[Rfam]
RNA: Plastid-psbA-4 3UTR RNA
RNA sequence: GAAAGUAAAGGGGCAGUACCGGUUUCUUGUUCUGUCAAGAAAUCGGUUAUUGCUCCGUUACUA
Numbered sequence: 001g002a003a004a005g006u007a008a009a010g011g012g013g014c015a016g017u018a019c020c021g022g023u024u025u026c027u028u029g030u031u032c033u034g035u036c037a038a039g040a041a042a043u044c045g046g047u048u049a050u051u052g053c054u055c056c057g058u059u060a061c062u063a
Stems, first nucleotide, its partner, number of pairs: 007059002010056009021044002024041006